[Rfam]
RNA sequence: AGGUCACUUCCAAGAGGGAUUUGGGAACUAAAACCAAGAGCUCUUAAGUCUAUAACCAAAUAGUGAUGUUUUCCAUAGGAUAUAAUAGUUACUCAGUAGUGCUAUGGUUUCCUGAGGAGACAUAAGA
Numbered sequence: 001a002g003g004u005c006a007c008u009u010c011c012a013a014g015a016g017g018g019a020u021u022u023g024g025g026a027a028c029u030a031a032a033a034c035c036a037a038g039a040g041c042u043c044u045u046a047a048g049u050c051u052a053u054a055a056c057c058a059a060a061u062a063g064u065g066a067u068g069u070u071u072u073c074c075a076u077a078g079g080a081u082a083u084a085a086u087a088g089u090u091a092c093u094c095a096g097u098a099g100u101g102c103u104a105u106g107g108u109u110u111c112c113u114g115a116g117g118a119g120a121c122a123u124a125a126g127a
Stems, first nucleotide, its partner, number of pairs: 002057003006053001014045005020039002024035002070120005077113004085105004090101004

Description: This 127-nucleotide RNA from Crocuta crocuta belongs to the Rfam family "Small nucleolar RNA SNORA25". The family's RNA type in Rfam is H/ACA-box small nucleolar RNA. About the family: ACA25 is a member of the H/ACA class of snoRNA that guide the sites of modification of uridines to pseudouridines. A search with the family's covariance model found it, with a score of 105 bits.